[Rfam]
RNA: U7 small nuclear RNA
Organism: Myotis davidii
RNA sequence: GAGUGCUUACAGCUCUUUUAGAAUUUGUCCAGCAGGUCUUCCGGCUUUUACCAGACGGCACCCCU
Numbered sequence: 001g002a003g004u005g006c007u008u009a010c011a012g013c014u015c016u017u018u019u020a021g022a023a024u025u026u027g028u029c030c031a032g033c034a035g036g037u038c039u040u041c042c043g044g045c046u047u048u049u050a051c052c053a054g055a056c057g058g059c060a061c062c063c064c065u
Base pairs, nucleotide, nucleotide: 035062036061037060038057040055041054043052044051